Shown here is a 102-nucleotide sequence from Halalkalibacillus sediminis, a member of the family "Purine riboswitch aptamer". The organism belongs to Halalkalibacillus, within Bacteria. The base pairs follow the family's consensus structure, which is taken from published work.
RNA sequence: AUUAAAAUAAACGAACGACUUCGUAUAUCCUUGCGAAUAUGGCGCAAGAGUCUCUACCGGGUUACCGUAAAUGACCUGACUAUGAAGGCAAGAGCUGGUGAA
Numbered sequence: 001a002u003u004a005a006a007a008u009a010a011a012c013g014a015a016c017g018a019c020u021u022c023g024u025a026u027a028u029c030c031u032u033g034c035g036a037a038u039a040u041g042g043c044g045c046a047a048g049a050g051u052c053u054c055u056a057c058c059g060g061g062u063u064a065c066c067g068u069a070a071a072u073g074a075c076c077u078g079a080c081u082a083u084g085a086a087g088g089c090a091a092g093a094g095c096u097g098g099u100g101a102a
Stems, first nucleotide, its partner, number of pairs: 019087007030048006058078007